The record is a 70-nucleotide sequence from Papio anubis, which matches "miR-430 microRNA precursor family" in Rfam. The family's consensus secondary structure was predicted with RNAalifold. Rfam links the family to the GO terms miRNA-mediated post-transcriptional gene silencing and RISC complex. The literature on the family includes a 2005 paper in Science by Giraldez et al., "MicroRNAs regulate brain morphogenesis in zebrafish". It scores 54 bits against the family's covariance model. Lineage of the source: Eukaryota > Tetrapoda > Primates > Catarrhini > Papio.

[Rfam]
RNA sequence: GUGAUUACUUCAACAAAAGCAUUGAUCUGUGUCACAAGUGUAGUAAGUGCUUUUUGUUGGGGUAGUCAUC
Numbered sequence: 001g002u003g004a005u006u007a008c009u010u011c012a013a014c015a016a017a018a019g020c021a022u023u024g025a026u027c028u029g030u031g032u033c034a035c036a037a038g039u040g041u042a043g044u045a046a047g048u049g050c051u052u053u054u055u056g057u058u059g060g061g062g063u064a065g066u067c068a069u070c
Stems, first nucleotide, its partner, number of pairs: 004066008013057005018051006025044002